[Rfam]
RNA sequence: GGACAUACGGGAAGCGUUGAUGCGUGGUCCUUCGAACCGGUCGCCUUCGGAGCACGCGGAGCAGUGGCGAGCCCGAUCCCGUCC
Numbered sequence: 001g002g003a004c005a006u007a008c009g010g011g012a013a014g015c016g017u018u019g020a021u022g023c024g025u026g027g028u029c030c031u032u033c034g035a036a037c038c039g040g041u042c043g044c045c046u047u048c049g050g051a052g053c054a055c056g057c058g059g060a061g062c063a064g065u066g067g068c069g070a071g072c073c074c075g076a077u078c079c080c081g082u083c084c
Stems, first nucleotide, its partner, number of pairs: 007082005014062002022057005028051002039074002041070005